[Rfam]
Nucleotides: 217
Base pairs, nucleotide, nucleotide: 016110017109018108024105025104026103027102031098032097043096044095045094046093047092048091049089050088051087052086053085054084058079059077060076061075062074063073065071116167118165124159125158126157127156128155185212186211187210188209189208190207191206192205194203
Number, partner (000 for none) and nucleotide at each position: 001000a002000a003000a004000u005000a006000g007000a008000a009000u010000g011000a012000u013000g014000a015000a016110a017109g018108g019000a020000a021000u022000g023000a024105u025104g026103g027102a028000u029000g030000a031098a032097u033000a034000a035000u036000g037000a038000u039000u040000a041000a042000c043096u044095a045094a046093u047092u048091u049089a050088u051087a052086u053085u054084u055000u056000a057000a058079g059077u060076u061075g062074a063073a064000u065071u066000u067000u068000a069000u070000a071065a072000c073063u074062u075061c076060a077059a078000a079058c080000u081000a082000c083000a084054a085053a086052a087051u088050a089049u090000a091048g092047g093046g094045u095044u096043a097032g098031u099000c100000u101000a102027u103026c104025c105024a106000u107000u108018u109017u110016u111000a112000u113000a114000a115000u116167u117000c118165a119000u120000u121000u122000c123000a124159u125158a126157c127156u128155u129000u130000a131000u132000u133000u134000g135000u136000c137000a138000u139000g140000a141000u142000u143000c144000a145000a146000a147000u148000g149000a150000u151000u152000a153000a154000u155128a156127a157126g158125u159124a160000c161000u162000u163000a164000c165118u166000u167116a168000a169000g170000u171000a172000u173000a174000a175000g176000c177000g178000a179000c180000a181000g182000a183000c184000u185212a186211a187210u188209c189208c190207u191206u192205c193000c194203g195000a196000u197000u198000a199000a200000a201000a202000a203194u204000u205192g206191g207190g208189g209188g210187a211186u212185u213000u214000u215000u216000u217000u

Bacillus sRNA ncr1575: a 217-nucleotide RNA from Bacillus thuringiensis. It is annotated as a small RNA. Taxonomically the source falls in Bacillus thuringiensis serovar finitimus (Bacteria, Bacillota, Bacilli, Bacillus).